[Rfam]
RNA: Small nucleolar RNA SNORD113/SNORD114 family
Organism: Acinonyx jubatus
RNA sequence: UGGACCCACCAGUGACAAUGGGUGAUAUAUAUGGGUCAUAUAUUAUGGAGAUGUGUCUGGAACUCUGAGGUCCAA
Numbered sequence: 001u002g003g004a005c006c007c008a009c010c011a012g013u014g015a016c017a018a019u020g021g022g023u024g025a026u027a028u029a030u031a032u033g034g035g036u037c038a039u040a041u042a043u044u045a046u047g048g049a050g051a052u053g054u055g056u057c058u059g060g061a062a063c064u065c066u067g068a069g070g071u072c073c074a075a
Stems, first nucleotide, its partner, number of pairs: 002073005